[Rfam]
RNA sequence: CCUGUUGCAUACAGGCUGGGAUGUGAACUCCGCUCGGAGUUUGAACCGUACA
Numbered sequence: 001c002c003u004g005u006u007g008c009a010u011a012c013a014g015g016c017u018g019g020g021a022u023g024u025g026a027a028c029u030c031c032g033c034u035c036g037g038a039g040u041u042u043g044a045a046c047c048g049u050a051c052a
Base pairs, nucleotide, nucleotide: 001015002014003013004012005011017048018047019046025042026041027040028039029038
RNA: eL15-Euryarchaeota ribosomal protein leader